The record is a 102-nucleotide RNA sequence from Lentibacillus kapialis, which matches "Purine riboswitch aptamer" in Rfam. From the family's description: Riboswitches are metabolite binding domains within certain messenger RNAs that serve as precision sensors for their corresponding targets. The base pairs follow the family's consensus structure, which is taken from published work.
RNA sequence: AAGCAUAUAACUUAAUAAUGGCGUAUAAUUUCGGGGAUAUGGCCCAAGAGUAUCUACCGGACCACCAUUAAUGGUCCGACUACGCAGGAUUUAGUCAUGAUA
Number, nucleotide and partner (000 for none) at each position: 001a000002a000003g000004c000005a000006u000007a000008u000009a000010a000011c000012u000013u000014a000015a000016u000017a000018a000019u087020g000021g085022c084023g083024u082025a081026u000027a000028a000029u049030u048031u047032c000033g045034g044035g043036g000037a000038u000039a000040u000041g000042g000043c035044c034045c033046a000047a031048g030049a029050g000051u000052a000053u000054c000055u000056a000057c000058c078059g077060g076061a075062c074063c073064a072065c000066c000067a000068u000069u000070a000071a000072u064073g063074g062075u061076c060077c059078g058079a000080c000081u025082a024083c023084g022085c021086a000087g019088g000089a000090u000091u000092u000093a000094g000095u000096c000097a000098u000099g000100a000101u000102a000